[Rfam]
Rfam assigns this 47-nucleotide RNA sequence to the family "Hepatitis C virus stem-loop I". The literature on the family includes a 2015 paper in Proc Natl Acad Sci U S A by Mauger et al., "Functionally conserved architecture of hepatitis C virus RNA genomes". Rfam classes the family as a cis-regulatory element. The base pairs follow the family's consensus structure, which was predicted with RNAfold.
RNA sequence: CACACGGGUGGCAUCUGCUCUCAGAAAACUUGGAGCGCCCCCCCUUA
Numbered sequence: 001c002a003c004a005c006g007g008g009u010g011g012c013a014u015c016u017g018c019u020c021u022c023a024g025a026a027a028a029c030u031u032g033g034a035g036c037g038c039c040c041c042c043c044c045u046u047a
Stems, first nucleotide, its partner, number of pairs: 006043003010039002019035001021033004